[Rfam]
RNA sequence: CAUUCUGUUCGUAAGAACAAGAGAAGCAGAUCUAGUCUAUACCCGAUAAGUACCAAUACCAAUUGAGA
Numbered sequence: 001c002a003u004u005c006u007g008u009u010c011g012u013a014a015g016a017a018c019a020a021g022a023g024a025a026g027c028a029g030a031u032c033u034a035g036u037c038u039a040u041a042c043c044c045g046a047u048a049a050g051u052a053c054c055a056a057u058a059c060c061a062a063u064u065g066a067g068a
Stems, first nucleotide, its partner, number of pairs: 003021002006019005042067001044065001050059003
Rfam assigns this 68-nucleotide RNA from Musa balbisiana to the family "Plastid-clpP 5UTR RNA". The family's consensus secondary structure was predicted with LocARNA. From the family's description: Plastid clpP is a non-coding RNA (ncRNA) recognised in plastids. It was found in the prime untranslated region (5UTR) of a protease complex subunit (clpP) in plastids, suggesting a posible cis-regulatory function. By type it is a cis-regulatory element. A search with the family's covariance model found it, with a score of 68 bits.